[Rfam]
RNA sequence: UUCAUCGUUUACUGAAAACUUCAAACUAUCACUCAUUUGUCUUUUUGCAUCGGGCAGACCAAUGUAAAACGUAAAAGAACCUGAUGC
Numbered sequence: 001u002u003c004a005u006c007g008u009u010u011a012c013u014g015a016a017a018a019c020u021u022c023a024a025a026c027u028a029u030c031a032c033u034c035a036u037u038u039g040u041c042u043u044u045u046u047g048c049a050u051c052g053g054g055c056a057g058a059c060c061a062a063u064g065u066a067a068a069a070c071g072u073a074a075a076a077g078a079a080c081c082u083g084a085u086g087c
Stems, first nucleotide, its partner, number of pairs: 034064003039059004047087005052081002